Notes:
This 251-nucleotide RNA from Polarella glacialis belongs to the Rfam family "RNase MRP". NCBI's taxonomy places the organism under Eukaryota, Sar, Alveolata, Dinophyceae, Polarella. The match comes from Rfam's covariance-model search (123 bits).
[Rfam]
RNA sequence: GGGGGCAGGGGAAGCACGGCUUCGCAGUUCACACACGAGGAGCUUGCUCCUUCUCAUGCUGCGGGGAAAGUCCCCGUGCCUUGGGGCAGAAAGUGCCAGCGGGAGACCGCAAGGCUUUAGCUAUGAUGCCGGCGGUGAAGCUUCACGUGGAGCCUCGACAUCUAGCCAGGGCCAGUCGCAGCAGCACAGGCAUGCCGUGAGUGCCCGCACGAAGGGCACCAACUGAACGGGGCUCACUCUCCCCAUGCCCU
Numbered sequence: 001g002g003g004g005g006c007a008g009g010g011g012a013a014g015c016a017c018g019g020c021u022u023c024g025c026a027g028u029u030c031a032c033a034c035a036c037g038a039g040g041a042g043c044u045u046g047c048u049c050c051u052u053c054u055c056a057u058g059c060u061g062c063g064g065g066g067a068a069a070g071u072c073c074c075c076g077u078g079c080c081u082u083g084g085g086g087c088a089g090a091a092a093g094u095g096c097c098a099g100c101g102g103g104a105g106a107c108c109g110c111a112a113g114g115c116u117u118u119a120g121c122u123a124u125g126a127u128g129c130c131g132g133c134g135g136u137g138a139a140g141c142u143u144c145a146c147g148u149g150g151a152g153c154c155u156c157g158a159c160a161u162c163u164a165g166c167c168a169g170g171g172c173c174a175g176u177c178g179c180a181g182c183a184g185c186a187c188a189g190g191c192a193u194g195c196c197g198u199g200a201g202u203g204c205c206c207g208c209a210c211g212a213a214g215g216g217c218a219c220c221a222a223c224u225g226a227a228c229g230g231g232g233c234u235c236a237c238u239c240u241c242c243c244c245a246u247g248c249c250c251u
Stems, first nucleotide, its partner, number of pairs: 002251005008244005015199006022064007037052006069234002072232004085097004099110004113173003117169002120166003126161003131154003140148002201219006